[Rfam]
RNA sequence: CGUGACCGCGGCGAUGGCGUCCGCCCGAACCGCCGGAUACGCCGGCUGAUGACGCCUGCCCAGAC
Numbered sequence: 001c002g003u004g005a006c007c008g009c010g011g012c013g014a015u016g017g018c019g020u021c022c023g024c025c026c027g028a029a030c031c032g033c034c035g036g037a038u039a040c041g042c043c044g045g046c047u048g049a050u051g052a053c054g055c056c057u058g059c060c061c062a063g064a065c
Base pairs, nucleotide, nucleotide: 010025011024012023013022016056017055018054019053020052021051032046033045034044035043